[Rfam]
RNA sequence: CCAGGGGCUCACGCACCCUGGCUAUUGACUGGCGCCACUUCGUGGCU
Numbered sequence: 001c002c003a004g005g006g007g008c009u010c011a012c013g014c015a016c017c018c019u020g021g022c023u024a025u026u027g028a029c030u031g032g033c034g035c036c037a038c039u040u041c042g043u044g045g046c047u
Stems, first nucleotide, its partner, number of pairs: 001021006007014002034046005
Shown here is a 47-nucleotide RNA sequence from Bythopirellula polymerisocia, a member of the family "Acido-Lenti-1 RNA". Rfam classes the family as a small RNA. A search with the family's covariance model found it, with a score of 38 bits.